[Rfam]
RNA sequence: UAGUUCAUAGGUGAGUACCCCGAUUAUAGUCGGAUGUACUCAUAUUUCCAUUCGGGAAGGUUCAACCUGGAAGAUAGCGAAGAUAUGGAUGAGGUUGCAA
Numbered sequence: 001u002a003g004u005u006c007a008u009a010g011g012u013g014a015g016u017a018c019c020c021c022g023a024u025u026a027u028a029g030u031c032g033g034a035u036g037u038a039c040u041c042a043u044a045u046u047u048c049c050a051u052u053c054g055g056g057a058a059g060g061u062u063c064a065a066c067c068u069g070g071a072a073g074a075u076a077g078c079g080a081a082g083a084u085a086u087g088g089a090u091g092a093g094g095u096u097g098c099a100a
Stems, first nucleotide, its partner, number of pairs: 019056005032049003036045003059067002
Description: A member of the RNA family "Pyrrolysine insertion sequence TetR" from Methanosarcina acetivorans, 100 nucleotides long. Rfam links the family to the GO term pyrrolysine incorporation. Rfam's curators put it in the seed alignment. The source organism's lineage runs through Archaea, Methanobacteriati, Methanosarcinales, Methanosarcina and Methanosarcina acetivorans.